Shown here is a 325-nucleotide sequence from Euroglyphus maynei, a member of the family "Nuclear RNase P". Rfam links the family to the GO terms ribonuclease P complex, ribonuclease P activity and tRNA processing. The organism belongs to Euroglyphus, within Eukaryota. The family's RNA type in Rfam is ribozyme.
RNA sequence: ACAACUUGUAGUCCGCACUAGAGAUUAAUCCAUGGAUUAACCUUUAGGAAGGUCUGAGAAUGCCGAACAGUGUGAAAACACUGUUUCAGAAUCUUAGCGAUUCACUUCGUAAUCCGAAGUGCAAGUCGAGAGCAACGAUUUUGAAAUGAAUACAUUAGUUUUACGCAAGAGAUGGUUUUUCAUCUGAAAAGAAUGAGAUUACCUGAUGCUUUAUGACUGAUGUGUUCAGUGAAAUGAUUUGCGGCUAGCCAAUGUAUAACAGUACGAUGUGCGGAAUGGCAAAUAUGUAUUUGCCAUAACUGAAUUCAGACUACUCACGGGUUGU
Number, nucleotide and partner (000 for none) at each position: 001a325002c324003a323004a322005c000006u000007u319008g318009u317010a000011g000012u275013c274014c273015g272016c271017a270018c269019u000020a045021g044022a043023g042024a000025u000026u000027a000028a000029u000030c000031c000032a000033u000034g000035g000036a000037u000038u000039a000040a000041c000042c023043u022044u021045u020046a000047g000048g000049a000050a000051g000052g000053u000054c309055u308056g307057a306058g305059a000060a000061u000062g245063c244064c243065g000066a000067a000068c000069a000070g000071u000072g000073u000074g000075a000076a000077a000078a000079c000080a000081c000082u000083g000084u000085u000086u000087c000088a000089g103090a102091a101092u100093c099094u000095u000096a000097g000098c000099g093100a092101u091102u090103c089104a120105c119106u118107u117108c116109g115110u000111a000112a000113u000114c000115c109116g108117a107118a106119g105120u104121g242122c241123a240124a239125g238126u237127c236128g000129a000130g000131a000132g000133c000134a000135a000136c000137g000138a000139u000140u000141u000142u000143g227144a226145a225146a000147u000148g000149a000150a000151u000152a000153c000154a000155u000156u000157a000158g000159u000160u000161u000162u000163a000164c000165g000166c000167a000168a000169g000170a000171g000172a000173u000174g000175g000176u000177u000178u000179u000180u000181c000182a000183u000184c000185u000186g000187a000188a000189a000190a000191g000192a000193a000194u000195g000196a000197g000198a000199u000200u000201a000202c000203c000204u000205g000206a000207u000208g000209c000210u000211u000212u000213a000214u000215g000216a000217c000218u000219g000220a000221u000222g000223u000224g000225u145226u144227c143228a000229g000230u000231g000232a000233a000234a000235u000236g127237a126238u125239u124240u123241g122242c121243g064244g063245c062246u000247a000248g000249c000250c000251a000252a000253u000254g000255u000256a000257u000258a000259a000260c000261a000262g000263u000264a000265c000266g000267a000268u000269g018270u017271g016272c015273g014274g013275a012276a297277u296278g295279g294280c293281a292282a291283a000284u000285a000286u000287g000288u000289a000290u000291u282292u281293g280294c279295c278296a277297u276298a000299a000300c000301u000302g000303a000304a000305u058306u057307c056308a055309g054310a000311c000312u000313a000314c000315u000316c000317a009318c008319g007320g000321g000322u004323u003324g002325u001